[Rfam]
RNA sequence: GAUCGCAAUGUUGUAAAAUUCAAGCUCAACAGACCGGAAUGUAGGGCUUUCUCUUGCGAGAAAGUUUUUCGUGUCGGAUACCCGUUGAACUGAGCAAUC
Numbered sequence: 001g002a003u004c005g006c007a008a009u010g011u012u013g014u015a016a017a018a019u020u021c022a023a024g025c026u027c028a029a030c031a032g033a034c035c036g037g038a039a040u041g042u043a044g045g046g047c048u049u050u051c052u053c054u055u056g057c058g059a060g061a062a063a064g065u066u067u068u069u070c071g072u073g074u075c076g077g078a079u080a081c082c083c084g085u086u087g088a089a090c091u092g093a094g095c096a097a098u099c
Stems, first nucleotide, its partner, number of pairs: 001099003005095002
A member of the RNA family "Small nucleolar RNA Z107/R87" from Castanea mollissima, 99 nucleotides long. It scores 68 bits against the family's covariance model. Pairs were carried over by alignment from the consensus structure, which was predicted with RNAfold. On this family, see Barneche et al., J Mol Biol 2001: "Identification of 66 box C/D snoRNAs in Arabidopsis thaliana: extensive gene duplications generated multiple isoforms predicting new ribosomal RNA 2'-O-methylation sites".